A member of the RNA family "Potassium channel RNA editing signal" from Anabarilius grahami, 114 nucleotides long.
RNA sequence: GUGGGCUAUGGAGAUAUUUACCCCCAGACUCUACUUGGCAAAAUAGUCGGUGGACUUUGCUGCAUUGCUGGAGUGCUGGUCAUUGCCUUACCCAUCCCUAUUAUUGUGAAUAAC
Numbered sequence: 001g002u003g004g005g006c007u008a009u010g011g012a013g014a015u016a017u018u019u020a021c022c023c024c025c026a027g028a029c030u031c032u033a034c035u036u037g038g039c040a041a042a043a044u045a046g047u048c049g050g051u052g053g054a055c056u057u058u059g060c061u062g063c064a065u066u067g068c069u070g071g072a073g074u075g076c077u078g079g080u081c082a083u084u085g086c087c088u089u090a091c092c093c094a095u096c097c098c099u100a101u102u103a104u105u106g107u108g109a110a111u112a113a114c
Base pairs, nucleotide, nucleotide: 001114002113004111007108008107009106010105011104013102014101015100016099020095037077038076039075040074049063

This family represents a group of sequences related to the human potassium channel Kv1.1 hairpin element which directs the efficient modification of an adenosine to inosine by an adenosine deaminase acting on RNA (ADAR). A search with the family's covariance model found it, with a score of 81 bits. By type it is a cis-regulatory element. The literature on the family includes a 2004 paper in Nat Struct Mol Biol by Bhalla et al., "Control of human potassium channel inactivation by editing of a small mRNA hairpin".